[Rfam]
RNA sequence: AGGGUGGUAUCAAAAAGAACCACACCGCGAAUGAAGAAGAAAAAGUUGCCUCAAUUACAAAUUUACAGUACCGCUUGGAGCCGGGAGGACCGAGACGGGAGG
Numbered sequence: 001a002g003g004g005u006g007g008u009a010u011c012a013a014a015a016a017g018a019a020c021c022a023c024a025c026c027g028c029g030a031a032u033g034a035a036g037a038a039g040a041a042a043a044a045g046u047u048g049c050c051u052c053a054a055u056u057a058c059a060a061a062u063u064u065a066c067a068g069u070a071c072c073g074c075u076u077g078g079a080g081c082c083g084g085g086a087g088g089a090c091c092g093a094g095a096c097g098g099g100a101g102g
Base pairs, nucleotide, nucleotide: 002026003025004023005022006021007020008019010018011017071098072097073096074094075093076092077091078090081088082087
Dot-bracket structure: .(((((((.((.....))))))).))............................................((((((((..((....)).))))).)))....